[Rfam]
RNA sequence: AACAGAACGCACGGGAGUCCGGCGAGCCGGGCUGAGAGGAGAGUGCAGGGCGUUUCGCGCGUCCACGGCUCUCGACCGUUGGUGACCUGAUCCGGAUCAUGCCGGCGAAGGGAGCGACGCAUGGCUUACG
Numbered sequence: 001a002a003c004a005g006a007a008c009g010c011a012c013g014g015g016a017g018u019c020c021g022g023c024g025a026g027c028c029g030g031g032c033u034g035a036g037a038g039g040a041g042a043g044u045g046c047a048g049g050g051c052g053u054u055u056c057g058c059g060c061g062u063c064c065a066c067g068g069c070u071c072u073c074g075a076c077c078g079u080u081g082g083u084g085a086c087c088u089g090a091u092c093c094g095g096a097u098c099a100u101g102c103c104g105g106c107g108a109a110g111g112g113a114g115c116g117a118c119g120c121a122u123g124g125c126u127u128a129c130g
Base pairs, nucleotide, nucleotide: 008116009115010114011079012078013077014076017032018031019030020029021028039073040072041071042070043069086111087110088109092105093104094103095102
RNA: TPP riboswitch aptamer (THI element)
Organism: Streptosporangiaceae bacterium NEAU-GS5